[Rfam]
Overview: Repression of heat shock gene expression (ROSE) element: a 93-nucleotide RNA sequence from Rhizobium sp. NFR07. Rfam 15.1 lists 381 matches to the family in 262 species. The source organism's lineage runs through Bacteria, Pseudomonadota, Hyphomicrobiales, Rhizobiaceae and Rhizobium. Rfam classes the family as an RNA thermoregulator. A reference for the family is Nocker et al. (2001), "A mRNA-based thermosensor controls expression of rhizobial heat shock genes", Nucleic Acids Res. This family represents a 5' UTR cis-regulatory element found in heat shock mRNAs and is known as the ROSE (repression of heat shock gene expression) element.
RNA sequence: CCAGCCGCUGAUGAAAGGGUUGGCCUUGCUGGAGGCGCCGUCUUUCGGCGCUUCCGUACCCAUGUUGCUUCAAGGAGGAUAUGGCUAUGGCAA
Dot-bracket structure: ((((((.((......))))))))........(((((((((.....)))))))))((((.(((((((.(((....)))))))))).))))....